[Rfam]
RNA sequence: AAACCCAGAAAAGAGACGGACAUGGUCCUUUAGUCCGUCGCUUUUCUGGGUAUUU
Numbered sequence: 001a002a003a004c005c006c007a008g009a010a011a012a013g014a015g016a017c018g019g020a021c022a023u024g025g026u027c028c029u030u031u032a033g034u035c036c037g038u039c040g041c042u043u044u045u046c047u048g049g050g051u052a053u054u055u
Stems, first nucleotide, its partner, number of pairs: 001053001003051011015039007
Dot-bracket structure: (.(((((((((((.(((((((...........))))))).))))))))))).)..

The record is a 55-nucleotide sequence from Solanum commersonii, which matches "MIR8008 microRNA precursor family" in Rfam. The family's consensus secondary structure was predicted with RNAalifold. NCBI's taxonomy places the organism under Eukaryota, Streptophytina, Tracheophyta, Solanaceae, Solanum. Rfam links the family to the GO terms RISC complex and miRNA-mediated post-transcriptional gene silencing. The match comes from Rfam's covariance-model search (66 bits). The family has 2 seed sequences and 240 matches in Rfam 15.1.